The family of this 127-nucleotide sequence from Sapajus apella is "Small nucleolar RNA SNORA64/SNORA10 family". The source organism's lineage runs through Eukaryota, Deuterostomia, Craniata, Sarcopterygii and Sapajus. This family belongs to the H/ACA class of small nucleolar RNAs (snoRNAs) which act as guides in the the modification of uridines to pseudouridines. This family includes the human snoRNAs U64 and ACA10 and mouse MBI-29. The base pairs follow the family's consensus structure, which is taken from published work. Rfam links the family to the GO terms nucleolus and RNA processing. Clan: SNORA64 clan. A reference for the family is Narayanan et al. (1999), "Nucleolar localization signals of box H/ACA small nucleolar RNAs", EMBO J. The match comes from Rfam's covariance-model search (52 bits).

RNA sequence: UCAGCCCUGCAUAAUUAAGUUACACUUGGCUUCAUCCAUGUGACUUCUACAACAGGGAGAAAAGAUGUCCUUGGCACCUCAGAUUGACCUUAUGGUGGUCUCUCUCUCCUUGAGGGGCACAACAGAU
Numbered sequence: 001u002c003a004g005c006c007c008u009g010c011a012u013a014a015u016u017a018a019g020u021u022a023c024a025c026u027u028g029g030c031u032u033c034a035u036c037c038a039u040g041u042g043a044c045u046u047c048u049a050c051a052a053c054a055g056g057g058a059g060a061a062a063a064g065a066u067g068u069c070c071u072u073g074g075c076a077c078c079u080c081a082g083a084u085u086g087a088c089c090u091u092a093u094g095g096u097g098g099u100c101u102c103u104c105u106c107u108c109c110u111u112g113a114g115g116g117g118c119a120c121a122a123c124a125g126a127u
Stems, first nucleotide, its partner, number of pairs: 002059001005057005018045007068116004073111001074109001081105003086100004